[Rfam]
RNA sequence: UAAUAAAGACAUAAAAAGAGCCGGUGUGCUACCACCAGCCCUUCUAUGUAGAGCCGUUGAAGACGGUGACGCAGUUUGGAUUAUUUAAUA
Numbered sequence: 001u002a003a004u005a006a007a008g009a010c011a012u013a014a015a016a017a018g019a020g021c022c023g024g025u026g027u028g029c030u031a032c033c034a035c036c037a038g039c040c041c042u043u044c045u046a047u048g049u050a051g052a053g054c055c056g057u058u059g060a061a062g063a064c065g066g067u068g069a070c071g072c073a074g075u076u077u078g079g080a081u082u083a084u085u086u087a088a089u090a
Stems, first nucleotide, its partner, number of pairs: 023036004053067006
About this RNA:
Shown here is a 90-nucleotide RNA from Bombilactobacillus mellis, a member of the family "RNA anti-toxin A". The base pairs follow the family's consensus structure, which was predicted with RNAalifold. It scores 58 bits against the family's covariance model. Taxonomically the source falls in Bombilactobacillus (Bacteria, Bacillati, Bacilli, Lactobacillales).